[Rfam]
RNA sequence: AUUGCAAGUGACAAUAAAACAGACAGGGACAUCUGCACUCUUCGGAGGGUGAUGACUCAGUCUAAUGGGAAUCUCUCUGAUGCAUU
Numbered sequence: 001a002u003u004g005c006a007a008g009u010g011a012c013a014a015u016a017a018a019a020c021a022g023a024c025a026g027g028g029a030c031a032u033c034u035g036c037a038c039u040c041u042u043c044g045g046a047g048g049g050u051g052a053u054g055a056c057u058c059a060g061u062c063u064a065a066u067g068g069g070a071a072u073c074u075c076u077c078u079g080a081u082g083c084a085u086u
Stems, first nucleotide, its partner, number of pairs: 003084004